[Rfam]
RNA sequence: UCGCAGUGCAUUAUUACUCACGGUACGAGUUGAAAGUGGCAUAGCGCGUACCAAAAGUAAUAAUGGACCGCGA
Numbered sequence: 001u002c003g004c005a006g007u008g009c010a011u012u013a014u015u016a017c018u019c020a021c022g023g024u025a026c027g028a029g030u031u032g033a034a035a036g037u038g039g040c041a042u043a044g045c046g047c048g049u050a051c052c053a054a055a056a057g058u059a060a061u062a063a064u065g066g067a068c069c070g071c072g073a
Stems, first nucleotide, its partner, number of pairs: 009065010022052006029045001
RNA: mir-126 microRNA precursor family